[Rfam]
RNA: mir-499 microRNA precursor family
RNA sequence: UGAGAGGAGGCAGUUAACUUGCAGUGAUGUUUAGUUAAACUCUUUUCAUGAACAUCACUUUAAGUCUGUACUGUCUGUC
Numbered sequence: 001u002g003a004g005a006g007g008a009g010g011c012a013g014u015u016a017a018c019u020u021g022c023a024g025u026g027a028u029g030u031u032u033a034g035u036u037a038a039a040c041u042c043u044u045u046u047c048a049u050g051a052a053c054a055u056c057a058c059u060u061u062a063a064g065u066c067u068g069u070a071c072u073g074u075c076u077g078u079c
Base pairs, nucleotide, nucleotide: 017065018064019063020062021061024058025057026056027055028054029053030052031051032050033049